[Rfam]
This 124-nucleotide RNA sequence from Virgibacillus pantothenticus belongs to the Rfam family "ylbH leader". A reference for the family is Barrick et al. (2004), "New RNA motifs suggest an expanded scope for riboswitches in bacterial genetic control", Proc Natl Acad Sci U S A. By type it is a cis-regulatory leader. It scores 93 bits against the family's covariance model. Pairs were carried over by alignment from the consensus structure.
RNA sequence: AAAGAAAAAACCUGCAGAAAAAGUUCUACAGGUCCUUUUGUUUCCUUAUAAAGAAAACAAAAAGGCAAAGGGAGAGGAGAAACCGGAAGAAGAACUUAUGGGGAAGUGUAAGUCUUCUCCGUUU
Number, nucleotide and partner (000 for none) at each position: 001a000002a000003a000004g000005a000006a000007a000008a000009a000010a000011c032012c031013u030014g029015c000016a027017g026018a025019a024020a000021a000022a000023g000024u019025u018026c017027u016028a000029c014030a013031g012032g011033u072034c071035c070036u069037u068038u000039u000040g000041u000042u060043u059044c000045c000046u056047u055048a000049u000050a000051a000052a000053g000054a000055a047056a046057a000058c000059a043060a042061a000062a000063a000064g000065g000066c000067a000068a037069a036070g035071g034072g033073a000074g000075a000076g000077g000078a000079g000080a000081a000082a000083c000084c121085g120086g119087a118088a000089g117090a116091a115092g114093a000094a113095c112096u111097u110098a109099u000100g000101g000102g000103g000104a000105a000106g000107u000108g000109u098110a097111a096112g095113u094114c092115u091116u090117c089118u087119c086120c085121g084122u000123u000124u000